[Rfam]
This 116-nucleotide RNA from Cupriavidus pinatubonensis belongs to the Rfam family "Guanidine-I riboswitch aptamer". It is one of the family's seed sequences. Lineage of the source: Bacteria > Betaproteobacteria > Burkholderiaceae > Cupriavidus > Cupriavidus pinatubonensis.
RNA sequence: CCGAAGGGUAGCUAGGGUUCCGGUCGUGCCAUGCGCGCGAUGGCUGGUCCGAGAGCGACCGGCCACCGGCACCUGAUCCGCCGGCGGCUCCACGGCGGGACAAAAGCCCGGGAGGU
Numbered sequence: 001c002c003g004a005a006g007g008g009u010a011g012c013u014a015g016g017g018u019u020c021c022g023g024u025c026g027u028g029c030c031a032u033g034c035g036c037g038c039g040a041u042g043g044c045u046g047g048u049c050c051g052a053g054a055g056c057g058a059c060c061g062g063c064c065a066c067c068g069g070c071a072c073c074u075g076a077u078c079c080g081c082c083g084g085c086g087g088c089u090c091c092a093c094g095g096c097g098g099g100a101c102a103a104a105a106g107c108c109c110g111g112g113a114g115g116u
Stems, first nucleotide, its partner, number of pairs: 007060003011056002015050002020047002022044001023041006061089004066084005091111001093114001097109003